[Rfam]
Mammalian CPEB3 ribozyme: a 70-nucleotide RNA sequence from Geotrypetes seraphini. Gene Ontology term of the family: RNA nuclease activity. It scores 37 bits against the family's covariance model. Pairs were carried over by alignment from the consensus structure, which is taken from published work. Rfam describes the family as follows. The mammalian CPEB3 ribozyme is a self cleaving RNA located in the second intron of the CPEB3 gene which belongs to a family of genes regulating messenger RNA polyadenylation. This ribozyme is highly conserved and found only in mammals. The CPEB3 ribozyme is structurally and biochemically related to the human hepatitis delta virus (HDV) ribozyme and the HDV ribozyme is proposed to have arisen from the human transcriptome. There is currently only one other known self cleaving ribozyme in mammals, the CoTC motif.
RNA sequence: AGGGGGGGGCCAUAGAAGAAACAUUCGCAUGGCAGUUCCAGUCAGAGUCCUAUGAUCUGAGAAUCCUACU
Numbered sequence: 001a002g003g004g005g006g007g008g009g010c011c012a013u014a015g016a017a018g019a020a021a022c023a024u025u026c027g028c029a030u031g032g033c034a035g036u037u038c039c040a041g042u043c044a045g046a047g048u049c050c051u052a053u054g055a056u057c058u059g060a061g062a063a064u065c066c067u068a069c070u
Stems, first nucleotide, its partner, number of pairs: 006039005014070002017067002020064001022032001043059004048055002